[Rfam]
RNA sequence: CCUGCUAUGCGACUAGCAGUAGCCUAGGGAGACAUGCGUCACUGGUAACGGUGGGGUGUGAAGCUCUCCUGACAACGUAGCCCCCGCAAGGGUGUCCACUCGCCGCGAGGCGAAGGGGCAGAGACUCCGAGCAGCAACGGGGUUGAGGAG
Numbered sequence: 001c002c003u004g005c006u007a008u009g010c011g012a013c014u015a016g017c018a019g020u021a022g023c024c025u026a027g028g029g030a031g032a033c034a035u036g037c038g039u040c041a042c043u044g045g046u047a048a049c050g051g052u053g054g055g056g057u058g059u060g061a062a063g064c065u066c067u068c069c070u071g072a073c074a075a076c077g078u079a080g081c082c083c084c085c086g087c088a089a090g091g092g093u094g095u096c097c098a099c100u101c102g103c104c105g106c107g108a109g110g111c112g113a114a115g116g117g118g119c120a121g122a123g124a125c126u127c128c129g130a131g132c133a134g135c136a137a138c139g140g141g142g143u144u145g146a147g148g149a150g
Base pairs, nucleotide, nucleotide: 002019003018004017005016006015007014028069029068030067031066032065033060034059035058036057037056039054040053041052042051043050044049083092084091085090093120094119095118096117103110104109124143125142126141127140128139129138

This 150-nucleotide sequence from Cupriavidus sp. USMAA2-4 belongs to the Rfam family "Group II catalytic intron D1-D4-7". About the family: Group II introns are found in rRNA, tRNA and mRNA of organelles in fungi, plants and protists, and also in mRNA in bacteria. Pairs were carried over by alignment from the consensus structure. Rfam links the family to the GO term Group II intron splicing. A search with the family's covariance model found it, with a score of 128 bits. The literature on the family includes a 2003 paper in Crit Rev Biochem Mol Biol by Lehmann and Schmidt, "Group II introns: structure and catalytic versatility of large natural ribozymes".